[Rfam]
Rfam assigns this 123-nucleotide RNA sequence from Flavobacterium commune to the family "Bacteroidete tryptophan peptide leader RNA". Rfam classes the family as a cis-regulatory leader.

RNA sequence: ACAUUUAUAUAUUUGCAAUAUGAAAACAAUUACAAAUAAUACUUGGUGGUGGAACAAUUUACGUCAAUAGUCGUGAACUAAGCUCCUAUAGUAUUAUUAUCUAUAAAUAUAAAAAGGCUUGUC
Numbered sequence: 001a002c003a004u005u006u007a008u009a010u011a012u013u014u015g016c017a018a019u020a021u022g023a024a025a026a027c028a029a030u031u032a033c034a035a036a037u038a039a040u041a042c043u044u045g046g047u048g049g050u051g052g053a054a055c056a057a058u059u060u061a062c063g064u065c066a067a068u069a070g071u072c073g074u075g076a077a078c079u080a081a082g083c084u085c086c087u088a089u090a091g092u093a094u095u096a097u098u099a100u101c102u103a104u105a106a107a108u109a110u111a112a113a114a115a116g117g118c119u120u121g122u123c
Base pairs, nucleotide, nucleotide: 035098036097037096039094040093041092042091043090046087048086049085051083056079058077059076060075061071062070